[Rfam]
RNA: RAGATH-18 RNA
RNA sequence: ACUAUGGAGAGUACAAGGAACUAUGAGUAGAUACUAAGAUACAUAGAUACAAAGUAUUGAAAAUAUACUCAAUGAAGUAGUAA
Numbered sequence: 001a002c003u004a005u006g007g008a009g010a011g012u013a014c015a016a017g018g019a020a021c022u023a024u025g026a027g028u029a030g031a032u033a034c035u036a037a038g039a040u041a042c043a044u045a046g047a048u049a050c051a052a053a054g055u056a057u058u059g060a061a062a063a064u065a066u067a068c069u070c071a072a073u074g075a076a077g078u079a080g081u082a083a
Base pairs, nucleotide, nucleotide: 001081002080003079004078005077009070010069011068012067013066022065023064024063030058031057032056034054035053
Dot-bracket structure: (((((...(((((........(((.....(((.((.................)).)))....))))))))......)))))..